[Rfam]
RNA sequence: GCAGCCGACCGGUUUGUCGCACGUACAUUAUUUGUACGGGAGGAAAGUCCGGGCAACAUAGAGCAUCCUACUUCCUAACAGAAAGCUGUCCGCGAGGGUAGAGUAACGUAGAAGAAAAUAACCGCCUCUUUUCGGAGAGGUAAGGGUGAGAAGGCAGGGUAAGAGCCUACCGGUCCUUGUGGCAACACGGGAGCCGUACGUCUUAGGAGUUGUAAGGUCAUGUAAACCGACGCUAUUGAGGGCUGCUCGCCCCAGCCGGAGGGUAGACCGCUAGAACUUAAUGGUGACAUUAAGUCCAGAUAAAUGACAAACGCUUUAUUUGUUUACAUUUAAAGAACAGAACUCGGCUUAUAGGUCGACUGCUUUU
Numbered sequence: 001g002c003a004g005c006c007g008a009c010c011g012g013u014u015u016g017u018c019g020c021a022c023g024u025a026c027a028u029u030a031u032u033u034g035u036a037c038g039g040g041a042g043g044a045a046a047g048u049c050c051g052g053g054c055a056a057c058a059u060a061g062a063g064c065a066u067c068c069u070a071c072u073u074c075c076u077a078a079c080a081g082a083a084a085g086c087u088g089u090c091c092g093c094g095a096g097g098g099u100a101g102a103g104u105a106a107c108g109u110a111g112a113a114g115a116a117a118a119u120a121a122c123c124g125c126c127u128c129u130u131u132u133c134g135g136a137g138a139g140g141u142a143a144g145g146g147u148g149a150g151a152a153g154g155c156a157g158g159g160u161a162a163g164a165g166c167c168u169a170c171c172g173g174u175c176c177u178u179g180u181g182g183c184a185a186c187a188c189g190g191g192a193g194c195c196g197u198a199c200g201u202c203u204u205a206g207g208a209g210u211u212g213u214a215a216g217g218u219c220a221u222g223u224a225a226a227c228c229g230a231c232g233c234u235a236u237u238g239a240g241g242g243c244u245g246c247u248c249g250c251c252c253c254a255g256c257c258g259g260a261g262g263g264u265a266g267a268c269c270g271c272u273a274g275a276a277c278u279u280a281a282u283g284g285u286g287a288c289a290u291u292a293a294g295u296c297c298a299g300a301u302a303a304a305u306g307a308c309a310a311a312c313g314c315u316u317u318a319u320u321u322g323u324u325u326a327c328a329u330u331u332a333a334a335g336a337a338c339a340g341a342a343c344u345c346g347g348c349u350u351a352u353a354g355g356u357c358g359a360c361u362g363c364u365u366u367u
Stems, first nucleotide, its partner, number of pairs: 001363004006358005011352001012312007020040001022038006045350003049347005054212004061248004066208005071085003075081001086101001088099004102203002106201005122145002124141007153171002156168003173194001174192003178189004216269004227259003231255001240252004276295008